Notes: Shown here is a 173-nucleotide sequence from Cohaesibacter sp. CAU 1516, a member of the family "FMN riboswitch aptamer (RFN element)". Rfam's curators write: The RFN element is a highly conserved domain that is found frequently in the 5'-untranslated regions of prokaryotic mRNAs that encode for flavin mononucleotide (FMN) biosynthesis and transport proteins. This element is a metabolite-dependent riboswitch that directly binds FMN in the absence of proteins. In Bacillus subtilis, the riboswitch most likely controls gene expression by causing premature transcription termination within the 5' untranslated region of the ribDEAHT operon and precluding access to the ribosome-binding site of ypaA mRNA.The FMN riboswitch structure, reported in present an FMN-bound six-stem junction, adopts a butterfly-like scaffold, stapled together by opposingly directed but nearly identically folded peripheral domains. The base pairs follow the family's consensus structure, which is taken from published work.
RNA sequence: ACUUAUUCUCGGGGCGGGGUGGAAGUCCCCACCGGCGGUAAGGAGUGGCGAAUUGUGCCUCUUCAAGCCCGCGAGCGCAUUGGUCAAAGCCCAACAAAGGCCCAAGCCAAUGGUCAGCAGAUCUGGUGCAAAGCCAGAGCCGACGGUUACAGUCCGGAUGAAAGAGAAUGAGA
Numbered sequence: 001a002c003u004u005a006u007u008c009u010c011g012g013g014g015c016g017g018g019g020u021g022g023a024a025g026u027c028c029c030c031a032c033c034g035g036c037g038g039u040a041a042g043g044a045g046u047g048g049c050g051a052a053u054u055g056u057g058c059c060u061c062u063u064c065a066a067g068c069c070c071g072c073g074a075g076c077g078c079a080u081u082g083g084u085c086a087a088a089g090c091c092c093a094a095c096a097a098a099g100g101c102c103c104a105a106g107c108c109a110a111u112g113g114u115c116a117g118c119a120g121a122u123c124u125g126g127u128g129c130a131a132a133g134c135c136a137g138a139g140c141c142g143a144c145g146g147u148u149a150c151a152g153u154c155c156g157g158a159u160g161a162a163a164g165a166g167a168a169u170g171a172g173a
Base pairs, nucleotide, nucleotide: 003171004170005169006168007167008166009165010164017029018028019027031153032152033142034141035072036071037070038069067140068139075118076117122138123137124136125135126134144156145155146154